Overview
mir-87 microRNA precursor family: a 71-nucleotide RNA sequence from Haemonchus placei. Gene Ontology terms of the family: RISC complex and miRNA-mediated post-transcriptional gene silencing. A search with the family's covariance model found it, with a score of 56 bits. Taxonomically the source falls in Haemonchus (Eukaryota, Eumetazoa, Protostomia, Chromadorea). Rfam 15.1 lists 420 matches to the family in 285 species. The literature on the family includes a 2003 paper in Dev Biol by Sempere et al., "Temporal regulation of microRNA expression in Drosophila melanogaster mediated by hormonal signals and broad-Complex gene activity".
RNA sequence: GUCCAUCCCGCCUGACACUUGACUCAAACCUCAUUCAAUGAAGGUGAGCAAAGUCUCAGGUGUGGCGGCCU
Numbered sequence: 001g002u003c004c005a006u007c008c009c010g011c012c013u014g015a016c017a018c019u020u021g022a023c024u025c026a027a028a029c030c031u032c033a034u035u036c037a038a039u040g041a042a043g044g045u046g047a048g049c050a051a052a053g054u055c056u057c058a059g060g061u062g063u064g065g066c067g068g069c070c071u
Stems, first nucleotide, its partner, number of pairs: 003068002006065002009062007017054004023048004029044003